[Rfam]
About this RNA
The family of this 145-nucleotide RNA from Kouleothrix aurantiaca is "SAM riboswitch aptamer (S box leader)".
RNA sequence: CUCUUAUCCAGAGAGGUGGAGGGACCGGCCCUUUGAAACCUCGGCAACCCUGGAAAAAGCGUCGGCGUGCAACGUUUAGUGAACGAGGCAUGCGCAGCUUGAUCAUUAGGGUGCCAAAUCCGGCAGCGCGACUGGAAGAUGAGAG
Numbered sequence: 001c002u003c004u005u006a007u008c009c010a011g012a013g014a015g016g017u018g019g020a021g022g023g024a025c026c027g028g029c030c031c032u033u034u035g036a037a038a039c040c041u042c043g044g045c046a047a048c049c050c051u052g053g054a055a056a057a058a059g060c061g062u063c064g065g066c067g068u069g070c071a072a073c074g075u076u077u078a079g080u081g082a083a084c085g086a087g088g089c090a091u092g093c094g095c096a097g098c099u100u101g102a103u104c105a106u107u108a109g110g111g112u113g114c115c116a117a118a119u120c121c122g123g124c125a126g127c128g129c130g131a132c133u134g135g136a137a138g139a140u141g142a143g144a145g
Stems, first nucleotide, its partner, number of pairs: 001145008013042005021031003025123004043115004048111005119137001124134003